[Rfam]
RNA sequence: GUCCGCUUCAAUUCCGUAGUGCAUUGCAGUGUUUUGAUAAUUUGGUUCCUGCAAGCAAUGCGGGAUUGUGGCGGAUUU
Numbered sequence: 001g002u003c004c005g006c007u008u009c010a011a012u013u014c015c016g017u018a019g020u021g022c023a024u025u026g027c028a029g030u031g032u033u034u035u036g037a038u039a040a041u042u043u044g045g046u047u048c049c050u051g052c053a054a055g056c057a058a059u060g061c062g063g064g065a066u067u068g069u070g071g072c073g074g075a076u077u078u
Stems, first nucleotide, its partner, number of pairs: 006071002009068002013064005020057003024054005
mir-932 microRNA precursor family: a 78-nucleotide sequence from Nesidiocoris tenuis. Its family is annotated with RISC complex and miRNA-mediated post-transcriptional gene silencing in the Gene Ontology. A reference for the family is Berezikov et al. (2010), "Evolutionary flux of canonical microRNAs and mirtrons in Drosophila", Nat Genet. NCBI's taxonomy places the organism under Eukaryota, Bilateria, Pancrustacea, Prosorrhyncha, Nesidiocoris.